[Rfam]
The record is a 115-nucleotide RNA sequence from Hibiscus trionum, which matches "MIR1520 microRNA precursor family" in Rfam. Clan: MIR1520 microRNA precursor clan. The match comes from Rfam's covariance-model search (56 bits). Lineage of the source: Eukaryota > Euphyllophyta > Mesangiospermae > Malvales > Hibiscus.
RNA sequence: AUUUAAUAAGAUGGUGACACGUGUCACCACCUUAUUGGACGUCUUUAAUUAUUUUUAUUUAAUUUAUUUAAUUAAUUUUCCACCUCCAAUCAGGUGGUGACACGUGUCACCAUCU
Number, nucleotide and partner (000 for none) at each position: 001a000002u000003u000004u000005a000006a000007u000008a000009a000010g000011a000012u000013g000014g000015u000016g000017a000018c000019a000020c000021g103022u102023g000024u000025c099026a098027c097028c000029a095030c094031c093032u092033u000034a090035u089036u088037g000038g000039a000040c000041g000042u000043c000044u000045u000046u000047a000048a000049u000050u000051a000052u000053u000054u000055u000056u000057a000058u000059u000060u000061a000062a000063u000064u000065u000066a000067u000068u000069u000070a000071a000072u000073u000074a000075a000076u000077u000078u000079u000080c000081c000082a000083c000084c000085u000086c000087c000088a036089a035090u034091c000092a032093g031094g030095u029096g000097g027098u026099g025100a000101c000102a022103c021104g000105u000106g000107u000108c000109a000110c000111c000112a000113u000114c000115u000